[Rfam]
RNA sequence: AUCUUGUUAGACCCGGUUUAGAAUUCCUACGCUUUACCGUAUUUUUAUACUGGCAAAGCGUUUGGAUUCUGAAUCUGGCCUAACA
Dot-bracket structure: .........(.(..((((((((.(((..(((((((.((.............)).)))))))..))).)))))))).).)......

This 85-nucleotide RNA sequence from Sitophilus oryzae belongs to the Rfam family "mir-927 microRNA precursor family".
It scores 68 bits against the family's covariance model.
The base pairs follow the family's consensus structure, which was predicted with RNAalifold.